[Rfam]
RNA sequence: CCGAUGGUCAGCUCAUUCUGCCGGUUGUCAUGCGAAUAUCACAAAAGACACAUCACAACCUCCUAGAAUGAGUUGAUUUUCGC
Numbered sequence: 001c002c003g004a005u006g007g008u009c010a011g012c013u014c015a016u017u018c019u020g021c022c023g024g025u026u027g028u029c030a031u032g033c034g035a036a037u038a039u040c041a042c043a044a045a046a047g048a049c050a051c052a053u054c055a056c057a058a059c060c061u062c063c064u065a066g067a068a069u070g071a072g073u074u075g076a077u078u079u080u081c082g083c
Stems, first nucleotide, its partner, number of pairs: 008075001010073001012072009023060002026057003030053003
A member of the RNA family "mir-67 microRNA precursor family" from Caenorhabditis bovis, 83 nucleotides long.
The match comes from Rfam's covariance-model search (54 bits).
The family's consensus secondary structure was predicted with RNAalifold.
A reference for the family is Cao et al. (2008), "Identification of conserved microRNAs in Bombyx mori (silkworm) and regulation of fibroin L chain production by microRNAs in heterologous system", Insect Biochem Mol Biol.
NCBI's taxonomy places the organism under Eukaryota, Opisthokonta, Nematoda, Rhabditomorpha, Caenorhabditis.